[Rfam]
RNA sequence: UCGAGAUGAGGUAGUAGGUUGUAUAGUUUGUUGGGUGGGAUCGCACCCUAUUCAGGUGAUAACUAUACAGUCUAUUGCCUUCCUCGC
Numbered sequence: 001u002c003g004a005g006a007u008g009a010g011g012u013a014g015u016a017g018g019u020u021g022u023a024u025a026g027u028u029u030g031u032u033g034g035g036u037g038g039g040a041u042c043g044c045a046c047c048c049u050a051u052u053c054a055g056g057u058g059a060u061a062a063c064u065a066u067a068c069a070g071u072c073u074a075u076u077g078c079c080u081u082c083c084u085c086g087c
Stems, first nucleotide, its partner, number of pairs: 002086004008081020033048003051058001
The family of this 87-nucleotide sequence from Conger conger is "let-7 microRNA precursor family". This family represents the microRNAs (miRNA) let-7 and mir-98. let-7 was identified from a study of developmental timing in C. elegans, and was later shown to be part of a much larger class of non-coding RNAs termed miRNAs. Rfam 15.1 lists 8,694 matches to the family in 797 species. Clan: let-7 microRNA precursor clan. Its family is annotated with RISC complex and miRNA-mediated post-transcriptional gene silencing in the Gene Ontology. A search with the family's covariance model found it, with a score of 67 bits.